[Rfam]
RNA sequence: UUUAGAAAAUAUAAUAUACCUUGUAUAAAUUCAAGAAGAUGGCUUGAAAGUUUCUACCAGCUACCGAUAAUAGCUGACUACAAGGAAUGGGAAAUUAAUU
Numbered sequence: 001u002u003u004a005g006a007a008a009a010u011a012u013a014a015u016a017u018a019c020c021u022u023g024u025a026u027a028a029a030u031u032c033a034a035g036a037a038g039a040u041g042g043c044u045u046g047a048a049a050g051u052u053u054c055u056a057c058c059a060g061c062u063a064c065c066g067a068u069a070a071u072a073g074c075u076g077a078c079u080a081c082a083a084g085g086a087a088u089g090g091g092a093a094a095u096u097a098a099u100u
Stems, first nucleotide, its partner, number of pairs: 019085007030048006058076006
The record is a 100-nucleotide sequence from Solibacillus silvestris, which matches "Purine riboswitch aptamer" in Rfam. NCBI's taxonomy places the organism under Bacteria, Bacilli, Caryophanales, Solibacillus, Solibacillus silvestris. From the family's description: Riboswitches are metabolite binding domains within certain messenger RNAs that serve as precision sensors for their corresponding targets.